[Rfam]
RNA sequence: CCGCCGCUCAUUGGGGAGUAGCCGCCCCGCAUCGUGCCGCGCUUCUGGACUUUCAUCACACCAGACGCCAUUCGCGCAAAAGCCGCGCAAGCGCCGCGCACGAUUCGCGGGGGCACCUGUCAACAGACUUGGCCGUUGCGGCCAUGGCAGGUGCAGCCUCUGGCCUGGCGAGACCGAUGACCCAUGACCGCCGCUACAGGGC
Numbered sequence: 001c002c003g004c005c006g007c008u009c010a011u012u013g014g015g016g017a018g019u020a021g022c023c024g025c026c027c028c029g030c031a032u033c034g035u036g037c038c039g040c041g042c043u044u045c046u047g048g049a050c051u052u053u054c055a056u057c058a059c060a061c062c063a064g065a066c067g068c069c070a071u072u073c074g075c076g077c078a079a080a081a082g083c084c085g086c087g088c089a090a091g092c093g094c095c096g097c098g099c100a101c102g103a104u105u106c107g108c109g110g111g112g113g114c115a116c117c118u119g120u121c122a123a124c125a126g127a128c129u130u131g132g133c134c135g136u137u138g139c140g141g142c143c144a145u146g147g148c149a150g151g152u153g154c155a156g157c158c159u160c161u162g163g164c165c166u167g168g169c170g171a172g173a174c175c176g177a178u179g180a181c182c183c184a185u186g187a188c189c190g191c192c193g194c195u196a197c198a199g200g201g202c
Stems, first nucleotide, its partner, number of pairs: 026111005113154010130144005
The family of this 202-nucleotide RNA sequence from Paraburkholderia dinghuensis is "Manganese Mn2+ riboswitch aptamer (yybP-ykoY)". It scores 62 bits against the family's covariance model. This RNA was originally discovered in E. coli during a large scale screen and was named SraF. The family was later found to exist upstream of related families of protein genes in many bacteria, including the the yybP and ykoK genes in B. subtilis. The specific functions of these proteins are unknown, but this structured RNA element may be involved in their genetic regulation as a riboswitch.